[Rfam]
RNA: Metazoan signal recognition particle RNA
Organism: Capitella teleta
RNA sequence: GCUGGGAGUCGUGGCGCACUCCUGUAAUCGAGCGACUUCGAGGCCGGGGAAGGUGGACGGCUUGAGCUCGGGAGCUCUGUCGGUCGCGGCGCUGUGUUGAUCGGGUGUCCGCACUAAGCCCGGCAUCGAUAUGGCGGUCCGGGGGGAGCCCCGGGCUUCCAGGUCGUCUAAGGAGGAAUGUACCGGCCCAGGGCGGCGACGCAGCAGGCAAAAGUCCCCGUGUCGGGCAGUAGUAGGAUGGCGCCUGUGAAUAGGUCACGGUCGGCAGCCUGAGCGAUAUAGUUGGACCCUUCCCUUU
Numbered sequence: 001g002c003u004g005g006g007a008g009u010c011g012u013g014g015c016g017c018a019c020u021c022c023u024g025u026a027a028u029c030g031a032g033c034g035a036c037u038u039c040g041a042g043g044c045c046g047g048g049g050a051a052g053g054u055g056g057a058c059g060g061c062u063u064g065a066g067c068u069c070g071g072g073a074g075c076u077c078u079g080u081c082g083g084u085c086g087c088g089g090c091g092c093u094g095u096g097u098u099g100a101u102c103g104g105g106u107g108u109c110c111g112c113a114c115u116a117a118g119c120c121c122g123g124c125a126u127c128g129a130u131a132u133g134g135c136g137g138u139c140c141g142g143g144g145g146g147a148g149c150c151c152c153g154g155g156c157u158u159c160c161a162g163g164u165c166g167u168c169u170a171a172g173g174a175g176g177a178a179u180g181u182a183c184c185g186g187c188c189c190a191g192g193g194c195g196g197c198g199a200c201g202c203a204g205c206a207g208g209c210a211a212a213a214g215u216c217c218c219c220g221u222g223u224c225g226g227g228c229a230g231u232a233g234u235a236g237g238a239u240g241g242c243g244c245c246u247g248u249g250a251a252u253a254g255g256u257c258a259c260g261g262u263c264g265g266c267a268g269c270c271u272g273a274g275c276g277a278u279a280u281a282g283u284u285g286g287a288c289c290c291u292u293c294c295c296u297u298u
Base pairs, nucleotide, nucleotide: 001044002043003042004023005022006021007020008019009018028041029040030039046296047295048294049293050292051291052290053289058285059284060283061282062281066275067274068273069272070271071270072269077268078267079266080265081264082263083262084261085260086259088257089256092254093253094252095251097249102247103246104245105244106243107242108241109237110236113234114233115232116231118228119227120226121225122224123223124222125221126220127166128165129164130163132161133160134159136157137156138155139154140153141152142151143150144149167173168172175218176217178215179214186209187208188207193202194201195200